[Rfam]
RNA sequence: CGACCCUCCACGGGAGAGCUCGGACCGACCCGGCCCCGGCCGGUGCGGGACGACGCCGAAGGAGCAAGCCCUCCCCGCCACACUCACAGGCCACCGAACCGUGGGGGACAG
Numbered sequence: 001c002g003a004c005c006c007u008c009c010a011c012g013g014g015a016g017a018g019c020u021c022g023g024a025c026c027g028a029c030c031c032g033g034c035c036c037c038g039g040c041c042g043g044u045g046c047g048g049g050a051c052g053a054c055g056c057c058g059a060a061g062g063a064g065c066a067a068g069c070c071c072u073c074c075c076c077g078c079c080a081c082a083c084u085c086a087c088a089g090g091c092c093a094c095c096g097a098a099c100c101g102u103g104g105g106g107g108a109c110a111g
Stems, first nucleotide, its partner, number of pairs: 006106008020053003055091003058087001062085003068078002
Dot-bracket structure: .....((((((((......(((............................))).((((...(((...((.......))....))).).))).......)))))))).....
RNA: Glycine riboswitch aptamer
Organism: Nakamurella flava